[Rfam]
RNA sequence: UAUUAUCUUCGGGGCAGGGUGAAAUUCCCGAUCGGCAGUAAAGUCUGCGAGCGUAAGCUGAUUUGGUGCAAUUCCAAAACCGACAGUAUAGUCUGGAUGGUAGAAGAUAGGU
Number, nucleotide and partner (000 for none) at each position: 001u000002a000003u110004u109005a108006u107007c106008u105009u104010c103011g000012g000013g000014g000015c000016a000017g029018g028019g027020u000021g000022a000023a000024a000025u000026u000027c019028c018029c017030g000031a092032u091033c082034g081035g048036c047037a046038g045039u000040a000041a000042a000043g080044u079045c038046u037047g036048c035049g000050a000051g058052c057053g000054u000055a000056a000057g052058c051059u000060g000061a000062u078063u077064u076065g075066g074067u000068g000069c000070a000071a000072u000073u000074c066075c065076a064077a063078a062079a044080c043081c034082g033083a000084c095085a094086g093087u000088a000089u000090a000091g032092u031093c086094u085095g084096g000097a000098u000099g000100g000101u000102a000103g010104a009105a008106g007107a006108u005109a004110g003111g000112u000

The family of this 112-nucleotide sequence from Gemella sp. zg-570 is "FMN riboswitch aptamer (RFN element)". NCBI's taxonomy places the organism under Bacteria, Bacillati, Bacilli, Caryophanales, Gemella. The match comes from Rfam's covariance-model search (118 bits).